Description
The family of this 122-nucleotide RNA sequence from Philodulcilactobacillus myokonensis is "FMN riboswitch aptamer (RFN element)". Rfam's curators write: The RFN element is a highly conserved domain that is found frequently in the 5'-untranslated regions of prokaryotic mRNAs that encode for flavin mononucleotide (FMN) biosynthesis and transport proteins.

RNA sequence: GUUUAUCUUCAGGGCAGGGUGAAAUUCCCGACCGGUGGUAAAAGCCCACGACCUACCAAUUGGUAGUUGAUUUGGUGGAAGUCCAAAGCCGACUGUUAAAGUCUGGUAUGAAGAAGAUAUAA
Numbered sequence: 001g002u003u004u005a006u007c008u009u010c011a012g013g014g015c016a017g018g019g020u021g022a023a024a025u026u027c028c029c030g031a032c033c034g035g036u037g038g039u040a041a042a043a044g045c046c047c048a049c050g051a052c053c054u055a056c057c058a059a060u061u062g063g064u065a066g067u068u069g070a071u072u073u074g075g076u077g078g079a080a081g082u083c084c085a086a087a088g089c090c091g092a093c094u095g096u097u098a099a100a101g102u103c104u105g106g107u108a109u110g111a112a113g114a115a116g117a118u119a120u121a122a
Stems, first nucleotide, its partner, number of pairs: 004119007017029003031102002033091002035049004044089002053066002071087005093105001095103001
Dot-bracket structure: ...(((((((......(((.......))).((((((((.....[[))))...((..........))....(((((.......)))))]])).[.[.....))].].......)))))))...